A member of the RNA family "Selenocysteine insertion sequence 1" from Centropus unirufus, 63 nucleotides long. Taxonomically the source falls in Centropus (Eukaryota, Archosauria, Saurischia, Coelurosauria). The incorporation of selenocysteine into a protein sequence is directed by an in-frame UGA codon (usually a stop codon) within the coding region of the mRNA. Selenoprotein mRNAs contain a conserved secondary structure in the 3' UTR that is required for the distinction of UGA stop from UGA selenocysteine.
RNA sequence: CCAGCCCCAUGAAGGUCUGCCUUCAAACCAGCCCUGGUGGGGCAGGCCUGAAGAUUUGGCGUG
Numbered sequence: 001c002c003a004g005c006c007c008c009a010u011g012a013a014g015g016u017c018u019g020c021c022u023u024c025a026a027a028c029c030a031g032c033c034c035u036g037g038u039g040g041g042g043c044a045g046g047c048c049u050g051a052a053g054a055u056u057u058g059g060c061g062u063g
Base pairs, nucleotide, nucleotide: 002063003062014048015047016046017045018044019043020042021041022040023039029036030035